RNA sequence: AGCAGAGUAAGUGCCUACGCGUUAAGUGCCGGAGUACGGGGAGUUGACAUCUGGACGAAAGCCUUCGGGCUGCGGUGUAAGCAUUGCAUCCCGCUGCU
Numbered sequence: 001a002g003c004a005g006a007g008u009a010a011g012u013g014c015c016u017a018c019g020c021g022u023u024a025a026g027u028g029c030c031g032g033a034g035u036a037c038g039g040g041g042a043g044u045u046g047a048c049a050u051c052u053g054g055a056c057g058a059a060a061g062c063c064u065u066c067g068g069g070c071u072g073c074g075g076u077g078u079a080a081g082c083a084u085u086g087c088a089u090c091c092c093g094c095u096g097c098u
Stems, first nucleotide, its partner, number of pairs: 001098005010085005016079004020074003026056002029054005034048002039091003043087001060071004
RNA: THF (Tetrahydrofolate) riboswitch aptamer